[Rfam]
RNA sequence: CGGACCAACUGUGUCCGUUGGGAUGUGGCCCAAACAGGGCUGAACCGAAAA
Numbered sequence: 001c002g003g004a005c006c007a008a009c010u011g012u013g014u015c016c017g018u019u020g021g022g023a024u025g026u027g028g029c030c031c032a033a034a035c036a037g038g039g040c041u042g043a044a045c046c047g048a049a050a051a
Base pairs, nucleotide, nucleotide: 001017002016003015004014005013019047020046021045027041028040029039030038031037